[Rfam]
RNA sequence: GCACUCCAGCAAACCCUGUCCAUCUGCUUCAGUGCUGGGCCAGGGCAAUGAAUGGUGCCAUAGUGAUUCAAGGUAUAUCCAGACGAGCCUACCUUCUGUUGUGGCUUGUCUCUACAACUUUGACACAUGG
Dot-bracket structure: (((((........(((((.((...............))..)))))........))))).........((((((.......((((((((....(.......)..))))))))......)))))).......

This 130-nucleotide RNA from Anguilla anguilla belongs to the Rfam family "Small nucleolar RNA SNORA55". Lineage of the source: Eukaryota > Bilateria > Deuterostomia > Teleostei > Anguilla. A search with the family's covariance model found it, with a score of 53 bits. Gene Ontology terms of the family: nucleolus and RNA processing.